RNA: EcpR1
RNA sequence: UUCCCUACGGUCAACCUCAGGUCCGCCGCAACUCCUGGGUCCGUAGGGAGGCUGGUCCGGCAAGGCUAGAGUGGCCUCUUCGACACGCCGAGCCGGACCAGCCACUCC
Numbered sequence: 001u002u003c004c005c006u007a008c009g010g011u012c013a014a015c016c017u018c019a020g021g022u023c024c025g026c027c028g029c030a031a032c033u034c035c036u037g038g039g040u041c042c043g044u045a046g047g048g049a050g051g052c053u054g055g056u057c058c059g060g061c062a063a064g065g066c067u068a069g070a071g072u073g074g075c076c077u078c079u080u081c082g083a084c085a086c087g088c089c090g091a092g093c094c095g096g097a098c099c100a101g102c103c104a105c106u107c108c
Stems, first nucleotide, its partner, number of pairs: 003048008016039006050103011